[Rfam]
RNA sequence: GGAAAUGCGCCCUUCACUGGAAUCCUUCCCUGGUGCUUGCUAUAGGUCAGUUCACCCUGCCGAACAUGGCAUAACAACACGCAACGCCCGUUGCCAUAACGCAUGCAAUCAGGGAGAUACAUGCAAUGCAAUU
Numbered sequence: 001g002g003a004a005a006u007g008c009g010c011c012c013u014u015c016a017c018u019g020g021a022a023u024c025c026u027u028c029c030c031u032g033g034u035g036c037u038u039g040c041u042a043u044a045g046g047u048c049a050g051u052u053c054a055c056c057c058u059g060c061c062g063a064a065c066a067u068g069g070c071a072u073a074a075c076a077a078c079a080c081g082c083a084a085c086g087c088c089c090g091u092u093g094c095c096a097u098a099a100c101g102c103a104u105g106c107a108a109u110c111a112g113g114g115a116g117a118u119a120c121a122u123g124c125a126a127u128g129c130a131a132u133u
Base pairs, nucleotide, nucleotide: 013114014113015112019029020028021027034107035106036105038103039102040101058071059070060069061068062067081094082093083092084091085090

This 133-nucleotide RNA sequence from Kosakonia sacchari belongs to the Rfam family "opuB ncRNA motif".
The family's consensus secondary structure is taken from published work.
The source organism's lineage runs through Bacteria, Pseudomonadota, Gammaproteobacteria, Enterobacteriaceae and Kosakonia.
The sequence is in the family's curated seed alignment.
Rfam describes the family as follows. opuB ncRNA motif was reported as a strong cis regulatory motif candidate, with potential to be a cis regulatory riboswitch type, it have been identified in mostly from species of Enterobacteriaceae.
Rfam classes the family as a cis-regulatory element.